[Rfam]
RNA sequence: ACAGCUCUUCGUUAGGUGAGGCUCCUGUAUGGAGAUACGCUGCUGCCCAAAAAUGUCCAAAGACGCCAAUGGGUCAACAGAAAUCAUCGAUCUAAGGUGAUUUUUAAUGCAGCUGGCAUGCUGCCUAUGCCAUACAGUGCUAAAGCUCUACGAUGGAAGGCGUUA
Numbered sequence: 001a002c003a004g005c006u007c008u009u010c011g012u013u014a015g016g017u018g019a020g021g022c023u024c025c026u027g028u029a030u031g032g033a034g035a036u037a038c039g040c041u042g043c044u045g046c047c048c049a050a051a052a053a054u055g056u057c058c059a060a061a062g063a064c065g066c067c068a069a070u071g072g073g074u075c076a077a078c079a080g081a082a083a084u085c086a087u088c089g090a091u092c093u094a095a096g097g098u099g100a101u102u103u104u105u106a107a108u109g110c111a112g113c114u115g116g117c118a119u120g121c122u123g124c125c126u127a128u129g130c131c132a133u134a135c136a137g138u139g140c141u142a143a144a145g146c147u148c149u150a151c152g153a154u155g156g157a158a159g160g161c162g163u164u165a
Stems, first nucleotide, its partner, number of pairs: 006160005011151002013095001015147003020141003025137008039113005045074005054065004080104004086098003115125003

This 165-nucleotide sequence from Bacillus licheniformis belongs to the Rfam family "M-box riboswitch aptamer (ykoK leader)". Taxonomically the source falls in Bacillus licheniformis (Bacteria, Bacilli, Caryophanales, Bacillus). Gene Ontology terms of the family: response to magnesium ion and regulation of gene expression.